[Rfam]
RNA sequence: ACUUUUUUGUCCAUUUUCGGACAACAUACUAAACUAUGACGUUUUUUGUCCAUUUUCGGACGACAUACUAAACUGACAUUUUUUGUCCAUUUUCGGACGACAUAUGACAUUUUUUGUCCAUUUUUGGGCGACAUACUGAACUAUACCUU
Number, nucleotide and partner (000 for none) at each position: 001a000002c000003u000004u000005u000006u065007u063008u062009g061010u060011c059012c058013a000014u000015u000016u000017u000018c000019g051020g050021a049022c048023a047024a046025c000026a045027u000028a043029c000030u000031a000032a000033a000034c000035u000036a000037u000038g000039a000040c000041g000042u000043u028044u000045u026046u024047u023048g022049u021050c020051c019052a000053u000054u000055u000056u000057c000058g012059g011060a010061c009062g008063a007064c000065a006066u000067a000068c000069u000070a000071a000072a000073c000074u000075g144076a000077c000078a000079u000080u000081u143082u000083u000084u130085g129086u128087c127088c126089a000090u000091u000092u000093u000094c000095g119096g118097a117098c116099g115100a114101c000102a000103u000104a000105u000106g000107a000108c000109a000110u000111u000112u000113u000114u100115u099116g098117u097118c096119c095120a000121u000122u000123u000124u000125u000126g088127g087128g086129c085130g084131a000132c000133a000134u140135a000136c000137u000138g000139a000140a134141c000142u000143a081144u075145a000146c000147c000148u000149u000
RNA: Glm Y RNA activator of glmS mRNA